[Rfam]
RNA sequence: GGGUGUCAGCAUCGCACGUUGCGGUGUGGCAGGUUAAUGCGUUAGUCGGGCCGCUGCG
Numbered sequence: 001g002g003g004u005g006u007c008a009g010c011a012u013c014g015c016a017c018g019u020u021g022c023g024g025u026g027u028g029g030c031a032g033g034u035u036a037a038u039g040c041g042u043u044a045g046u047c048g049g050g051c052c053g054c055u056g057c058g
Base pairs, nucleotide, nucleotide: 005030006029007028008027010026011025012024013023014022040058041057042056044055045054046053